[Rfam]
RNA sequence: AAAGUCCUUCGGGGUCGGGUGAAAAUCCCAGCCGGCGGUGAUGAACAAUCGUUCUAAGCCCGCGACGGGGAAGAAGUGUCAAGCACUCUUCCUCCUGAUUUGGUGAGAGACCAAAGCCGACAGUUACAGUCUGGAUGGGAGAAGGAUGUG
Dot-bracket structure: ...(((((((......(((.......))).[[((((((...................[[))))...((((((................))))))....(((((.......)))))]])).(((.....]]))).......)))))))...